Record summary
A member of the RNA family "mir-156 microRNA precursor family" from Helianthus annuus, 98 nucleotides long. The organism belongs to Helianthus, within Eukaryota. Rfam links the family to the GO terms miRNA-mediated post-transcriptional gene silencing and RISC complex. A search with the family's covariance model found it, with a score of 78 bits. This family represents the plant microRNA (miRNA) precursor mir-156. On this family, see Reinhart et al., Genes Dev 2002: "MicroRNAs in plants".
RNA sequence: GUGACAGAAGAGAGUGAGCACACAUGGGUUUUCUUGCAAAAUAAUUAUUUAGCCUCAUGUAUGCUUCAAACUAUGUGUGCUCACCCUCUAUCUGUCAC
Numbered sequence: 001g002u003g004a005c006a007g008a009a010g011a012g013a014g015u016g017a018g019c020a021c022a023c024a025u026g027g028g029u030u031u032u033c034u035u036g037c038a039a040a041a042u043a044a045u046u047a048u049u050u051a052g053c054c055u056c057a058u059g060u061a062u063g064c065u066u067c068a069a070a071c072u073a074u075g076u077g078u079g080c081u082c083a084c085c086c087u088c089u090a091u092c093u094g095u096c097a098c
Stems, first nucleotide, its partner, number of pairs: 001098008010088003014084008023075005